The family of this 161-nucleotide sequence from Clostridium botulinum is "M-box riboswitch aptamer (ykoK leader)".
[Rfam]
RNA sequence: UAAGUACCUCGGUAGGUGAGGUUACUACAAGGAUACGGGUUGCUACCGUGAAAGAGUGGAAACAUUCUAAACAGGUUAGCAGGUUUUGCCGAACAAAGAAGGCUUAAUCUAAUGCAACUACAUUGCCUUGCAGAGCCAAAACUUGAACGAGAAAGUAUAGA
Number, nucleotide and partner (000 for none) at each position: 001u000002a000003a000004g000005u157006a156007c155008c000009u153010c000011g148012g000013u100014a000015g143016g142017u141018g000019a000020g137021g136022u135023u000024a000025c133026u132027a000028c130029a129030a128031g127032g126033a000034u000035a000036c000037g000038g000039g118040u117041u116042g115043c114044u000045a000046c074047c000048g072049u071050g000051a000052a000053a000054g000055a066056g065057u064058g063059g000060a000061a000062a000063c058064a057065u056066u055067c000068u000069a000070a000071a049072c048073a000074g046075g000076u000077u000078a000079g000080c000081a000082g109083g108084u107085u106086u000087u000088g103089c102090c101091g000092a000093a000094c000095a000096a000097a000098g000099a000100a013101g090102g089103c088104u000105u000106a085107a084108u083109c082110u000111a000112a000113u000114g043115c042116a041117a040118c039119u000120a000121c000122a000123u000124u000125g000126c032127c031128u030129u029130g028131c000132a026133g025134a000135g022136c021137c020138a000139a000140a000141a017142c016143u015144u000145g000146a000147a000148c011149g000150a000151g000152a000153a009154a000155g007156u006157a005158u000159a000160g000161a000